[Rfam]
RNA: mir-148/mir-152 microRNA precursor family
RNA sequence: UUAAGCCCAAGUUCUGUGAUACACUUUGGCUCUGUUAUUGAGGAAAGUCAGUGCAUAACAGAACUUUGUCUUGGG
Numbered sequence: 001u002u003a004a005g006c007c008c009a010a011g012u013u014c015u016g017u018g019a020u021a022c023a024c025u026u027u028g029g030c031u032c033u034g035u036u037a038u039u040g041a042g043g044a045a046a047g048u049c050a051g052u053g054c055a056u057a058a059c060a061g062a063a064c065u066u067u068g069u070c071u072u073g074g075g
Base pairs, nucleotide, nucleotide: 004071005070007068009066010065011064012063013062014061015060016059022053023052024051025050028049029048030047031046